Notes: The family of this 45-nucleotide RNA from Branchiostoma floridae is "Histone 3' UTR stem-loop". Its family is annotated with mRNA 3'-end processing by stem-loop binding and cleavage in the Gene Ontology. On this family, see Tan et al., Science 2013: "Structure of histone mRNA stem-loop, human stem-loop binding protein, and 3'hExo ternary complex".
[Rfam]
RNA sequence: ACCCCGGCCCUUCUCAGGGCCACACACAUAUCCCAGAAAGAUCUA
Numbered sequence: 001a002c003c004c005c006g007g008c009c010c011u012u013c014u015c016a017g018g019g020c021c022a023c024a025c026a027c028a029u030a031u032c033c034c035a036g037a038a039a040g041a042u043c044u045a
Stems, first nucleotide, its partner, number of pairs: 006021006